[Rfam]
The record is an 82-nucleotide RNA sequence from Granulicatella adiacens, which matches "SAM-III riboswitch aptamer (SMK box)" in Rfam.
The base pairs follow the family's consensus structure, which is taken from published work.

RNA sequence: AAAAGUUAAAAAUGAUAUUCCCGAAAGGAUGCACCAUGUGUAGAUGCCUUGUAACCGGAAUUGAAUGGGGGAAAAAGAAAUG
Numbered sequence: 001a002a003a004a005g006u007u008a009a010a011a012a013u014g015a016u017a018u019u020c021c022c023g024a025a026a027g028g029a030u031g032c033a034c035c036a037u038g039u040g041u042a043g044a045u046g047c048c049u050u051g052u053a054a055c056c057g058g059a060a061u062u063g064a065a066u067g068g069g070g071g072a073a074a075a076a077g078a079a080a081u082g
Stems, first nucleotide, its partner, number of pairs: 018073005025050004030042005055068002
The literature on the family includes a 2007 paper in Proc Natl Acad Sci U S A by Fuchs et al., "S-adenosylmethionine directly inhibits binding of 30S ribosomal subunits to the SMK box translational riboswitch RNA".